[Rfam]
RNA sequence: UUGCUUGUAUGAUGAUUUAAGUGAUGUUUGUAGGGACAUCUGAGUAUUUGAUGAGCCAACAUCUCUGACAAGUAA
Numbered sequence: 001u002u003g004c005u006u007g008u009a010u011g012a013u014g015a016u017u018u019a020a021g022u023g024a025u026g027u028u029u030g031u032a033g034g035g036a037c038a039u040c041u042g043a044g045u046a047u048u049u050g051a052u053g054a055g056c057c058a059a060c061a062u063c064u065c066u067g068a069c070a071a072g073u074a075a
Stems, first nucleotide, its partner, number of pairs: 001075005
RNA: Small nucleolar RNA SNORD74
Organism: Sinocyclocheilus grahami